Source information: A member of the RNA family "Small Cajal body specific RNA 3" from Polypterus senegalus, 139 nucleotides long. For this family Rfam cites "Cajal body-specific small nuclear RNAs: a novel class of 2'-O-methylation and pseudouridylation guide RNAs" (Darzacq et al., EMBO J, 2002). Its family is annotated with nucleolus, Cajal body and RNA processing in the Gene Ontology. scaRNAs are a specific class of small nuclear RNAs which localise to the Cajal bodies and guide the modification of RNA polymerase II transcribed spliceosomal RNAs U1, U2, U4, U5 and U12. The organism belongs to Polypterus, within Eukaryota.

[Rfam]
Nucleotides: 139
Base pairs, nucleotide, nucleotide: 004069005068006067008064009063010062024056025055026054027053028052029051030050037049038048039047082132083131084130085129086128090123092121093120094119096117097116098115099114100113101112102111
Number, partner (000 for none) and nucleotide at each position: 001000u002000u003000u004069g005068g006067g007000c008064a009063a010062a011000u012000a013000a014000a015000u016000g017000c018000a019000u020000u021000u022000u023000a024056a025055g026054c027053a028052g029051g030050u031000a032000g033000c034000c035000u036000u037049a038048g039047c040000a041000g042000g043000c044000a045000g046000u047039g048038c049037u050030g051029u052028c053027u054026g055025c056024u057000g058000c059000c060000a061000u062010u063009u064008u065000u066000g067006c068005c069004c070000u071000a072000a073000a074000u075000u076000a077000a078000u079000g080000c081000a082132g083131a084130a085129g086128g087000u088000u089000u090123c091000u092121g093120u094119c095000c096117g097116g098115c099114u100113u101112c102111u103000u104000u105000g106000a107000g108000c109000a110000u111102g112101g113100a114099g115098g116097c117096c118000g119094g120093g121092u122000c123090g124000u125000u126000c127000c128086c129085c130084u131083u132082c133000u134000u135000a136000c137000a138000u139000g

Overview:
Rfam 15.1 lists 642 matches to the family in 535 species. The family's RNA type in Rfam is small Cajal body RNA.